[Rfam]
Source information
Shown here is a 114-nucleotide RNA sequence, a member of the family "c-di-GMP-II-GAG riboswitch aptamer".

RNA sequence: CCUCCGGGGGAAAGUAACGAUCCGAGCAGCCCACACCGACGCAUCCAUGCGCACGGAGACAGACGGUCGCCUAGGCGGCUCGGGGAGCGAGUGGCGAGACCGAACCCGCCCAGC
Numbered sequence: 001c002c003u004c005c006g007g008g009g010g011a012a013a014g015u016a017a018c019g020a021u022c023c024g025a026g027c028a029g030c031c032c033a034c035a036c037c038g039a040c041g042c043a044u045c046c047a048u049g050c051g052c053a054c055g056g057a058g059a060c061a062g063a064c065g066g067u068c069g070c071c072u073a074g075g076c077g078g079c080u081c082g083g084g085g086a087g088c089g090a091g092u093g094g095c096g097a098g099a100c101c102g103a104a105c106c107c108g109c110c111c112a113g114c
Stems, first nucleotide, its partner, number of pairs: 002113002006109001008107003014088002022083006029076001065101002067097005
Pairs were carried over by alignment from the consensus structure, which is taken from published work.
Rfam's curators put it in the seed alignment.
A reference for the family is Weinberg et al. (2017), "Bioinformatic analysis of riboswitch structures uncovers variant classes with altered ligand specificity", Proc Natl Acad Sci U S A.
Rfam links the family to the GO terms cyclic-di-GMP binding and regulation of gene expression.